Rfam assigns this 193-nucleotide RNA sequence from Bacillus sp. FJAT-27916 to the family "Lysine riboswitch aptamer".
Its family is annotated with lysine biosynthetic process in the Gene Ontology.
Riboswitches are metabolite binding domains within certain messenger RNAs that serve as precision sensors for their corresponding targets.
The base pairs follow the family's consensus structure, which is taken from published work.
The match comes from Rfam's covariance-model search (115 bits).
RNA sequence: AGAUGAGGUAGAGGUCGCGAUAUUUAUCAGUACGCUAGUAACAAGAGCCGGAAAGCUUGAUGACGCUAGCGGAAAGGAACUAUCGCCGAAGCGCUGUUCUUUUCCGAGAAUGGCAGCUGGGACUGCAGCCGAAUAGGUGCAGGACUGUCAUGGGAAUACAUACUUCAUGCUCCCAUGGAGAACUAUCCGUUUU
Numbered sequence: 001a002g003a004u005g006a007g008g009u010a011g012a013g014g015u016c017g018c019g020a021u022a023u024u025u026a027u028c029a030g031u032a033c034g035c036u037a038g039u040a041a042c043a044a045g046a047g048c049c050g051g052a053a054a055g056c057u058u059g060a061u062g063a064c065g066c067u068a069g070c071g072g073a074a075a076g077g078a079a080c081u082a083u084c085g086c087c088g089a090a091g092c093g094c095u096g097u098u099c100u101u102u103u104c105c106g107a108g109a110a111u112g113g114c115a116g117c118u119g120g121g122a123c124u125g126c127a128g129c130c131g132a133a134u135a136g137g138u139g140c141a142g143g144a145c146u147g148u149c150a151u152g153g154g155a156a157u158a159c160a161u162a163c164u165u166c167a168u169g170c171u172c173c174c175a176u177g178g179a180g181a182a183c184u185a186u187c188c189g190u191u192u193u
Stems, first nucleotide, its partner, number of pairs: 007187005017086006024079002033071007090118003093114008119146002123142005129136001148178007